[Rfam]
RNA sequence: UAAACUUAGGUCUGUGGUUGAAAAUCGAUGCCAGUCGCAGGCGAAACGAUCCACGUAAGCCGGCUAAAGGUCGGUGAGCAUGGUGCGGCUUAGAAGUAAGUCUGACCUAUGGUGGUAUGGAAGGUUAAGAUGUACAUGGAUAUUAUCCUAUGAGUUUCAAACUUUCCGAUUACUGCUAUAGAGAGGGGAAGUAGUGGGAGGCUAAGGUCUUGAGCGAAACCCCCAGUCAGCGGAUGUGGGGGCAAAGACCAGGUCAGCUGAGUUUA
Numbered sequence: 001u002a003a004a005c006u007u008a009g010g011u012c013u014g015u016g017g018u019u020g021a022a023a024a025u026c027g028a029u030g031c032c033a034g035u036c037g038c039a040g041g042c043g044a045a046a047c048g049a050u051c052c053a054c055g056u057a058a059g060c061c062g063g064c065u066a067a068a069g070g071u072c073g074g075u076g077a078g079c080a081u082g083g084u085g086c087g088g089c090u091u092a093g094a095a096g097u098a099a100g101u102c103u104g105a106c107c108u109a110u111g112g113u114g115g116u117a118u119g120g121a122a123g124g125u126u127a128a129g130a131u132g133u134a135c136a137u138g139g140a141u142a143u144u145a146u147c148c149u150a151u152g153a154g155u156u157u158c159a160a161a162c163u164u165u166c167c168g169a170u171u172a173c174u175g176c177u178a179u180a181g182a183g184a185g186g187g188g189a190a191g192u193a194g195u196g197g198g199a200g201g202c203u204a205a206g207g208u209c210u211u212g213a214g215c216g217a218a219a220c221c222c223c224c225a226g227u228c229a230g231c232g233g234a235u236g237u238g239g240g241g242g243c244a245a246a247g248a249c250c251a252g253g254u255c256a257g258c259u260g261a262g263u264u265u266a
Stems, first nucleotide, its partner, number of pairs: 001266009012257003015251005028237003031041001033090007050083002058075001060073001062071001081244001102230005107181011185223004194215002200209003
The family of this 266-nucleotide RNA sequence is "raiA RNA". Rfam's curators put it in the seed alignment.